[Rfam]
RNA sequence: GCCGAGCUCAGUAAUGUGGGCUUAUAACCCAAAUGGGGGCAAUAAUGUGGUGGAAUAUUGAGCCGCUCCAGAUGGUAGGACUUGGUGGGCUAAUCUCUGGCCUACCCUGUCCAAGCACAGAGUUGGGUCAUGAGGCCCAAGCCAAGGCAUGGGCUGCUGGACUCCUAAAGUGGGGUGGACCGCGUGAGGCUGGUUUCACAGAGCAAUGAAUAGUUCCCGCUCUGUGCAGUGGAAGGAUUACGGGCCAGUAUUCUCCAAGUCCAACAAAUCCCUGAUGGGCUUCUCCAAUUAAACUAUUACUUUU
Numbered sequence: 001g002c003c004g005a006g007c008u009c010a011g012u013a014a015u016g017u018g019g020g021c022u023u024a025u026a027a028c029c030c031a032a033a034u035g036g037g038g039g040c041a042a043u044a045a046u047g048u049g050g051u052g053g054a055a056u057a058u059u060g061a062g063c064c065g066c067u068c069c070a071g072a073u074g075g076u077a078g079g080a081c082u083u084g085g086u087g088g089g090c091u092a093a094u095c096u097c098u099g100g101c102c103u104a105c106c107c108u109g110u111c112c113a114a115g116c117a118c119a120g121a122g123u124u125g126g127g128u129c130a131u132g133a134g135g136c137c138c139a140a141g142c143c144a145a146g147g148c149a150u151g152g153g154c155u156g157c158u159g160g161a162c163u164c165c166u167a168a169a170g171u172g173g174g175g176u177g178g179a180c181c182g183c184g185u186g187a188g189g190c191u192g193g194u195u196u197c198a199c200a201g202a203g204c205a206a207u208g209a210a211u212a213g214u215u216c217c218c219g220c221u222c223u224g225u226g227c228a229g230u231g232g233a234a235g236g237a238u239u240a241c242g243g244g245c246c247a248g249u250a251u252u253c254u255c256c257a258a259g260u261c262c263a264a265c266a267a268a269u270c271c272c273u274g275a276u277g278g279g280c281u282u283c284u285c286c287a288a289u290u291a292a293a294c295u296a297u298u299a300c301u302u303u304u
Stems, first nucleotide, its partner, number of pairs: 001040003004023007028037003044303002047300007056291002058288003061284002065280002068278003074272002077269001078262008087253003091250002097248007106236002110233004115227009125164005132157001134155006141148002165170001172217005183208003190201003

The record is a 304-nucleotide RNA from Nicotiana tabacum, which matches "Plant signal recognition particle RNA" in Rfam.
The match comes from Rfam's covariance-model search (243 bits).
The source organism's lineage runs through Eukaryota, Viridiplantae, Tracheophyta, asterids and Nicotiana.
The base pairs follow the family's consensus structure, which is taken from published work.